A member of the RNA family "Small nucleolar RNA Z102/R77" from Apostasia shenzhenica, 89 nucleotides long.
Gene Ontology terms of the family: nucleolus and RNA processing.
The family is grouped with related families in Rfam's "SNORD44 clan".
Pairs were carried over by alignment from the consensus structure, which was predicted with PFOLD.
A search with the family's covariance model found it, with a score of 58 bits.
The literature on the family includes a 2003 paper in Nucleic Acids Res by Chen et al., "The high diversity of snoRNAs in plants: identification and comparative study of 120 snoRNA genes from Oryza sativa".

Nucleotides: 089
Stems, first nucleotide, its partner, number of pairs: 002088004041064001045062003048057001
Number, partner (000 for none) and nucleotide at each position: 001000u002088g003087g004086u005085c006000a007000g008000a009000u010000g011000a012000u013000g014000a015000g016000a017000a018000g019000c020000a021000a022000u023000u024000u025000g026000u027000u028000u029000c030000c031000u032000u033000a034000u035000u036000g037000g038000u039000u040000u041064a042000a043000u044000g045062g046061u047060c048057c049000a050000a051000u052000a053000u054000g055000a056000u057048g058000c059000a060047g061046a062045c063000a064041u065000c066000u067000g068000u069000a070000u071000u072000a073000g074000c075000u076000c077000u078000a079000u080000c081000u082000g083000a084000u085005g086004a087003u088002u089000a